About this RNA
Shown here is a 180-nucleotide RNA sequence from Mycobacterium pseudokansasii, a member of the family "Actinobacteria sRNA Ms_IGR-5". The base pairs follow the family's consensus structure. A reference for the family is Li et al. (2013), "Identification of small RNAs in Mycobacterium smegmatis using heterologous Hfq", RNA. The source organism's lineage runs through Bacteria, Bacillati, Actinomycetes, Mycobacteriaceae and Mycobacterium.
RNA sequence: ACACAGGAAAGGAGGUGGUCCGCGAAAUUGAUAGCUUCAUGGACAUGUGAGGUGGCUGCGCGCUAGCUGCAAUGGCUCGGAAGAGCCGGCGUUCAACGCACGCUGGCGAAUCCCACGUAGCCACCCGGCCCCCGAGCUUCCGAUCUGUCCAACCGGAAAUGCGCUCGGGGGCCGCUCCAU
Numbered sequence: 001a002c003a004c005a006g007g008a009a010a011g012g013a014g015g016u017g018g019u020c021c022g023c024g025a026a027a028u029u030g031a032u033a034g035c036u037u038c039a040u041g042g043a044c045a046u047g048u049g050a051g052g053u054g055g056c057u058g059c060g061c062g063c064u065a066g067c068u069g070c071a072a073u074g075g076c077u078c079g080g081a082a083g084a085g086c087c088g089g090c091g092u093u094c095a096a097c098g099c100a101c102g103c104u105g106g107c108g109a110a111u112c113c114c115a116c117g118u119a120g121c122c123a124c125c126c127g128g129c130c131c132c133c134g135a136g137c138u139u140c141c142g143a144u145c146u147g148u149c150c151a152a153c154c155g156g157a158a159a160u161g162c163g164c165u166c167g168g169g170g171g172c173c174g175c176u177c178c179a180u
Stems, first nucleotide, its partner, number of pairs: 015059005061108007069099002074094002126174012139157004144152001
Dot-bracket structure: ..............(((((...................................))))).(((((((.((...((.................))...))..))))))).................((((((((((((.((((.(.......).)))).....))))))))))))......